Notes: Shown here is a 102-nucleotide RNA from Niallia taxi, a member of the family "Purine riboswitch aptamer". The base pairs follow the family's consensus structure, which is taken from published work.
RNA sequence: AUAUAACAAUUAUAUUCAUCUCGUAUAAUAGCAGGGAUAUGGCCUGCGAGUUUCUACCAGAUAACCGAAAAUUAUCUGACUACGAGUAAGCCUUAUUAAUAU
Numbered sequence: 001a002u003a004u005a006a007c008a009a010u011u012a013u014a015u016u017c018a019u020c021u022c023g024u025a026u027a028a029u030a031g032c033a034g035g036g037a038u039a040u041g042g043c044c045u046g047c048g049a050g051u052u053u054c055u056a057c058c059a060g061a062u063a064a065c066c067g068a069a070a071a072u073u074a075u076c077u078g079a080c081u082a083c084g085a086g087u088a089a090g091c092c093u094u095a096u097u098a099a100u101a102u
Stems, first nucleotide, its partner, number of pairs: 020086006029049001031047005058078007